Shown here is an 85-nucleotide RNA sequence from Anaerobium acetethylicum, a member of the family "HTH-XRE RNA". A search with the family's covariance model found it, with a score of 62 bits. Rfam classes the family as a cis-regulatory element.
RNA sequence: GAUCAGCAAAUCAAGCCAGAGCGUCAAGAACCAGGAUGCAUCGGAACUUCUGGCAAGAGCAACUUGCAAAGGUGACUUCCCUUUC
Dot-bracket structure: ..............(((((((((((.........))))).........))))))...............................